[Rfam]
Nucleotides: 130
Stems, first nucleotide, its partner, number of pairs: 002025002026110006036044002045095003053070004073089004
Number, partner (000 for none) and nucleotide at each position: 001000a002025u003024c004000a005000g006000c007000g008000c009000g010000g011000u012000g013000c014000c015000g016000a017000g018000g019000c020000g021000a022000g023000g024003g025002a026110a027109c028108c029107g030106g031105g032000g033000a034000a035000c036044c037043a038000a039000c040000c041000c042000u043037u044036g045095g046094g047093g048000u049000g050000a051000a052000u053070c054069g055068g056067g057000u058000c059000g060000u061000a062000c063000g064000c065000g066000a067056c068055c069054c070053g071000u072000a073089g074088g075087a076086g077000a078000c079000c080000u081000u082000c083000c084000u085000g086076c087075u088074c089073c090000g091000a092000a093047c094046c095045c096000g097000u098000c099000a100000g101000c102000u103000a104000a105031c106030c107029c108028g109027g110026u111000a112000g113000g114000c115000g116000a117000g118000a119000a120000g121000g122000a123000a124000g125000g126000a127000a128000a129000g130000g
The record is a 130-nucleotide sequence from Streptomyces buecherae, which matches "c-di-AMP riboswitch aptamer (ydaO/yuaA leader)" in Rfam. A search with the family's covariance model found it, with a score of 88 bits. Rfam describes the family as follows. This family represents a conserved RNA structure found upstream of the ydaO and yuaA genes in Bacillus subtilis and related genes in other bacteria. NCBI's taxonomy places the organism under Bacteria, Bacillati, Actinomycetota, Actinomycetes, Streptomyces.